RNA sequence: UAUCUUUGCCGGCUCAACGGGAAAACCCCGUUAUACAUAAAAACUAUUUAAAUAAUAUUGGCAUG
Number, nucleotide and partner (000 for none) at each position: 001u000002a000003u000004c000005u000006u000007u000008g000009c000010c000011g000012g000013c000014u000015c000016a032017a031018c030019g029020g028021g000022a000023a000024a000025a000026c000027c000028c020029c019030g018031u017032u016033a000034u000035a000036c000037a000038u000039a000040a000041a000042a000043a000044c000045u000046a000047u000048u000049u000050a000051a000052a000053u000054a000055a000056u000057a000058u000059u000060g000061g000062c000063a000064u000065g000
Background
This 65-nucleotide sequence belongs to the Rfam family "S15-Flavobacteria ribosomal protein leader". The family's consensus secondary structure is taken from published work. Rfam's curators put it in the seed alignment. The family is grouped with related families in Rfam's "Ribosomal Protein S15 Leader clan".